Overview:
The record is a 55-nucleotide RNA, which matches "L31-Actinobacteria ribosomal protein leader" in Rfam.
RNA sequence: UCGGUCCCGGUUCACGUCUGUUGCUCGCAGGUCAUGCGCAGGCGACCCGGCGGCC
Numbered sequence: 001u002c003g004g005u006c007c008c009g010g011u012u013c014a015c016g017u018c019u020g021u022u023g024c025u026c027g028c029a030g031g032u033c034a035u036g037c038g039c040a041g042g043c044g045a046c047c048c049g050g051c052g053g054c055c
Stems, first nucleotide, its partner, number of pairs: 003055003007050004015044006

The sequence is in the family's curated seed alignment. The family's RNA type in Rfam is cis-regulatory leader.